RNA sequence: UUAAGUCAAAUUUGUAUGGAGGUGGAAUGUUUGCCUAUUUUGCCGCUAGGGGCGCUGUUCGAACUCCAUACAAAUUUGAGUUA
Numbered sequence: 001u002u003a004a005g006u007c008a009a010a011u012u013u014g015u016a017u018g019g020a021g022g023u024g025g026a027a028u029g030u031u032u033g034c035c036u037a038u039u040u041u042g043c044c045g046c047u048a049g050g051g052g053c054g055c056u057g058u059u060c061g062a063a064c065u066c067c068a069u070a071c072a073a074a075u076u077u078g079a080g081u082u083a
Stems, first nucleotide, its partner, number of pairs: 008077009018067001020065002023062001025060005034051003039045001
mir-2807 microRNA precursor family: an 83-nucleotide sequence from Bombyx mori. For this family Rfam cites "MicroRNAs of Bombyx mori identified by Solexa sequencing" (Liu et al., BMC Genomics, 2010). It scores 76 bits against the family's covariance model. Gene Ontology terms of the family: miRNA-mediated post-transcriptional gene silencing and RISC complex. Pairs were carried over by alignment from the consensus structure, which was predicted with RNAalifold.